[Rfam]
RNA: Plastid-psbN 5UTR RNA
Organism: Macleaya cordata
Nucleotides: 061
Stems, first nucleotide, its partner, number of pairs: 017045002020042005026036001
Number, partner (000 for none) and nucleotide at each position: 001000c002000c003000a004000c005000a006000c007000a008000c009000c010000c011000a012000u013000c014000a015000a016000a017045g018044g019000c020042g021041u022040a023039g024038u025000c026036c027000c028000c029000c030000a031000u032000c033000c034000a035000c036026g037000a038024g039023c040022u041021a042020c043000u044018u045017u046000a047000c048000c049000a050000u051000a052000u053000u054000c055000c056000g057000a058000a059000u060000u061000c